[Rfam]
RNA sequence: UGAGUCGACUAGGCGGUCGCGUUAGGGUGGUUGUCUGCCCUACCGAGGAACGUCCGGGCUCUAUAGAGCAUGGUGGUGGGUAACGCCCACCCGGGGUGACCCGCGGGACAGUGCCACAGAAAACAGACCGCUGCGAUGGAUUUCGGUUCGUCGCAGUAAGGGUGAAACGGUGGUGUAAGAGACCACCAGCGUGCCGGGUGACCGGUGCGGCUCGGUAAACCCCACCAGGAGCAAGGUCAGGCAGGAUACGUUCGAGGGCUGCUCGCCUAAGUAUCCGGGUAGACCGCUAGAGGGUGUCGGCAACGGCACUCGUAGAUGGAUGACCGCUACCCGCCUGCUGGCAACGGCAGACGGUGACAGAACCCGGCGUAUCGGUCGACUCAUCCG
Number, nucleotide and partner (000 for none) at each position: 001u383002g382003a381004g380005u379006c378007g377008a376009c375010u374011a372012g328013g327014c326015g325016g324017u323018c322019g000020c045021g044022u000023u042024a041025g040026g039027g038028u037029g000030g000031u000032u000033g000034u000035c000036u000037g028038c027039c026040c025041u024042a023043c000044c021045g020046a000047g000048g000049a000050a370051c369052g368053u000054c367055c366056g365057g364058g363059c231060u230061c229062u228063a000064u000065a000066g264067a263068g262069c261070a000071u227072g226073g225074u224075g223076g090077u089078g088079g087080g086081u000082a000083a000084c000085g000086c080087c079088c078089a077090c076091c105092c103093g102094g101095g100096g000097u000098g000099a000100c095101c094102c093103g092104c000105g091106g222107g221108a000109c000110a000111g220112u219113g216114c215115c214116a000117c000118a000119g000120a000121a000122a000123a000124c000125a000126g000127a000128c161129c160130g157131c156132u155133g154134c153135g152136a151137u150138g149139g148140a147141u146142u000143u000144c000145g000146g141147u140148u139149c138150g137151u136152c135153g134154c133155a132156g131157u130158a000159a000160g129161g128162g000163u000164g000165a000166a000167a000168c000169g187170g186171u185172g184173g183174u182175g000176u000177a000178a000179g000180a000181g000182a174183c173184c172185a171186c170187c169188a000189g211190c209191g208192u207193g206194c205195c204196g203197g202198g000199u000200g000201a000202c197203c196204g195205g194206u193207g192208c191209g190210g000211c189212u000213c000214g115215g114216u113217a000218a000219a112220c111221c107222c106223c075224a074225c073226c072227a071228g062229g061230a060231g059232c000233a000234a000235g285236g284237u283238c282239a000240g000241g000242c000243a000244g276245g275246a274247u273248a272249c271250g000251u000252u000253c000254g000255a000256g268257g267258g266259c265260u000261g069262c068263u067264c066265g259266c258267c257268u256269a000270a000271g249272u248273a247274u246275c245276c244277g000278g000279g000280u000281a000282g238283a237284c236285c235286g000287c000288u000289a000290g000291a000292g311293g310294g309295u308296g307297u306298c305299g304300g000301c000302a000303a000304c299305g298306g297307c296308a295309c294310u293311c292312g000313u000314a000315g000316a000317u000318g000319g000320a000321u000322g018323a017324c016325c015326g014327c013328u012329a000330c000331c000332c000333g000334c000335c000336u000337g000338c000339u000340g000341g000342c000343a000344a000345c000346g000347g000348c000349a000350g000351a000352c000353g000354g000355u000356g000357a000358c000359a000360g000361a000362a000363c058364c057365c056366g055367g054368c052369g051370u050371a000372u011373c000374g010375g009376u008377c007378g006379a005380c004381u003382c002383a001384u000385c000386c000387g000
RNA: Bacterial RNase P class A